[Rfam]
RNA sequence: UAAUCGGGGCUUCAUUGGGGAGUAGCCUCUCUUCAGCCUGAAGAGGCUUGCGUCAACACACUUGUCCCGCAGGACAUGGCGCAAGCGGUUUCCGAGCUUGGCAAGACCUUUGAUCAUGAUGCCUCCGAUCUGGCCGGGGAUGCGUCGUGGUCAAUCGUCUCUGUACCGGCCUUGGAACAUU
Numbered sequence: 001u002a003a004u005c006g007g008g009g010c011u012u013c014a015u016u017g018g019g020g021a022g023u024a025g026c027c028u029c030u031c032u033u034c035a036g037c038c039u040g041a042a043g044a045g046g047c048u049u050g051c052g053u054c055a056a057c058a059c060a061c062u063u064g065u066c067c068c069g070c071a072g073g074a075c076a077u078g079g080c081g082c083a084a085g086c087g088g089u090u091u092c093c094g095a096g097c098u099u100g101g102c103a104a105g106a107c108c109u110u111u112g113a114u115c116a117u118g119a120u121g122c123c124u125c126c127g128a129u130c131u132g133g134c135c136g137g138g139g140a141u142g143c144g145u146c147g148u149g150g151u152c153a154a155u156c157g158u159c160u161c162u163g164u165a166c167c168g169g170c171c172u173u174g175g176a177a178c179a180u181u
Stems, first nucleotide, its partner, number of pairs: 030044003046086010063076005087180001090177006
RNA: Manganese Mn2+ riboswitch aptamer (yybP-ykoY)
Organism: Malikia granosa